[Rfam]
RNA: Bacterial RNase P class A
Organism: Bifidobacterium actinocoloniiforme
RNA sequence: UGAGGUCUCUCGAUGGCCGCGGCGGCUUCCUGGCCGCUGAGGAACUUCCGGGCUCCACAGAGCACGAUGGCGGAUAACGUCCGCCCAGGGUGACCUGAGAGAGAGCGCAACAGAGAGCAGACCGCCCACCGCAAGGCGGGUAAGGGUGAAAGGGCGGUGUAAGAGACCACCGGGCUCCUGGUAACAGGAGUCGCAUGGCAAGCCUCAUCGGGAGCAAGGCCAAGCAGAAGGCAUCAAGGGUUGCUCGCCCCGCCUUCGGGUAGGCCGCUGGAGCCUGGCGGCGACGUCAGGUCGAGAUGGAUGGCCAUCCGUCCCUUCGGGGACGACAGAACCCGGGGUAUGAGGGGCCUCACGCU
Numbered sequence: 001u002g003a004g005g006u007c008u009c010u011c012g013a014u015g016g017c018c019g020c021g022g023c024g025g026c027u028u029c030c031u032g033g034c035c036g037c038u039g040a041g042g043a044a045c046u047u048c049c050g051g052g053c054u055c056c057a058c059a060g061a062g063c064a065c066g067a068u069g070g071c072g073g074a075u076a077a078c079g080u081c082c083g084c085c086c087a088g089g090g091u092g093a094c095c096u097g098a099g100a101g102a103g104a105g106c107g108c109a110a111c112a113g114a115g116a117g118c119a120g121a122c123c124g125c126c127c128a129c130c131g132c133a134a135g136g137c138g139g140g141u142a143a144g145g146g147u148g149a150a151a152g153g154g155c156g157g158u159g160u161a162a163g164a165g166a167c168c169a170c171c172g173g174g175c176u177c178c179u180g181g182u183a184a185c186a187g188g189a190g191u192c193g194c195a196u197g198g199c200a201a202g203c204c205u206c207a208u209c210g211g212g213a214g215c216a217a218g219g220c221c222a223a224g225c226a227g228a229a230g231g232c233a234u235c236a237a238g239g240g241u242u243g244c245u246c247g248c249c250c251c252g253c254c255u256u257c258g259g260g261u262a263g264g265c266c267g268c269u270g271g272a273g274c275c276u277g278g279c280g281g282c283g284a285c286g287u288c289a290g291g292u293c294g295a296g297a298u299g300g301a302u303g304g305c306c307a308u309c310c311g312u313c314c315c316u317u318c319g320g321g322g323a324c325g326a327c328a329g330a331a332c333c334c335g336g337g338g339u340a341u342g343a344g345g346g347g348c349c350u351c352a353c354g355c356u
Base pairs, nucleotide, nucleotide: 001352002351003350004349005348006347007346008345009344010343012309013308014307015306016305017304018303020039021038022037023036024035025034026033027032044339045338046337048336049335050334051333052332053214054213055212056211060246061245062244063243065210066209067208068207069206070084071083072082073081074080085099086097087096088095089094100205101204105203106202107199108198122145123144124141125140126139127138129136130135153171154170156168157167158166172194173192174191175190176189177188178187179186180185218266219265220264221263227257228256229255230254231253232252238250239249240248241247273292274291275290276289277288278287279286280285